[Rfam]
RNA sequence: AAGACUGCAGUGGGAGAGCACGCUCAAGAAGCGUCACCGAAGGGGCAAAUCUUUGGAAAAAGGUGAAUCUCUCAGGUAAAAAGACCACUGUAGGACG
Numbered sequence: 001a002a003g004a005c006u007g008c009a010g011u012g013g014g015a016g017a018g019c020a021c022g023c024u025c026a027a028g029a030a031g032c033g034u035c036a037c038c039g040a041a042g043g044g045g046c047a048a049a050u051c052u053u054u055g056g057a058a059a060a061a062g063g064u065g066a067a068u069c070u071c072u073c074a075g076g077u078a079a080a081a082a083g084a085c086c087a088c089u090g091u092a093g094g095a096c097g
Base pairs, nucleotide, nucleotide: 006092007091008090009089010088011087012086013085020034021033022032023031036077037076038075039073040072043071044070045069049064050063051062052061053060054059
Rfam assigns this 97-nucleotide RNA from Oceanobacillus halophilus to the family "Glycine riboswitch aptamer". It scores 70 bits against the family's covariance model.